RNA sequence: CUUGGCUGGUGGUGGCGCUUGCCCGAACGAUGGCGUGCGCGCGGCUGAUUCCUGACUGACAGGAUUAUCUGACCCGAGGCCCGCCAUUCGAGCGGGCUUUUUUUU
Numbered sequence: 001c002u003u004g005g006c007u008g009g010u011g012g013u014g015g016c017g018c019u020u021g022c023c024c025g026a027a028c029g030a031u032g033g034c035g036u037g038c039g040c041g042c043g044g045c046u047g048a049u050u051c052c053u054g055a056c057u058g059a060c061a062g063g064a065u066u067a068u069c070u071g072a073c074c075c076g077a078g079g080c081c082c083g084c085c086a087u088u089c090g091a092g093c094g095g096g097c098u099u100u101u102u103u104u105u
Stems, first nucleotide, its partner, number of pairs: 009042003015036005022029001078098007085090001
Shown here is a 105-nucleotide sequence from Sphingomonas lutea, a member of the family "Tryptophan operon leader". Rfam describes the family as follows. At least 6 amino acid operons are known to be regulated by attenuation. In each a leader sequence of 150-200 bp is found upstream of the first gene in the operon. This leader sequence can assume two different secondary structures known as the terminator and the anti-terminator structure. It scores 41 bits against the family's covariance model. The family's consensus secondary structure is taken from published work. A reference for the family is Kolter and Yanofsky (1982), "Attenuation in amino acid biosynthetic operons", Annu Rev Genet.